[Rfam]
RNA: mir-9229 microRNA precursor family
RNA sequence: GAGACAGCCUUCGGGGGCAAGACUUGCUUCAGUGGGGUUUUGGUGUUCACUGAGUUUGCCCCCUGAGUGUGUCCCU
Numbered sequence: 001g002a003g004a005c006a007g008c009c010u011u012c013g014g015g016g017g018c019a020a021g022a023c024u025u026g027c028u029u030c031a032g033u034g035g036g037g038u039u040u041u042g043g044u045g046u047u048c049a050c051u052g053a054g055u056u057u058g059c060c061c062c063c064u065g066a067g068u069g070u071g072u073c074c075c076u
Stems, first nucleotide, its partner, number of pairs: 001075001003073004009067003014062006021056003029053008037044002